Selenocysteine insertion sequence 1: a 67-nucleotide RNA sequence from Chrysolophus pictus. By type it is a cis-regulatory element. The organism belongs to Chrysolophus, within Eukaryota.
RNA sequence: CAGCGCUCCAUGACGGGAGCAGCCAAAAAGCCCACGGGCACAGGGCUGCUUCCAGAACCCGCGCGUG
Numbered sequence: 001c002a003g004c005g006c007u008c009c010a011u012g013a014c015g016g017g018a019g020c021a022g023c024c025a026a027a028a029a030g031c032c033c034a035c036g037g038g039c040a041c042a043g044g045g046c047u048g049c050u051u052c053c054a055g056a057a058c059c060c061g062c063g064c065g066u067g
Stems, first nucleotide, its partner, number of pairs: 001067002015053010030039003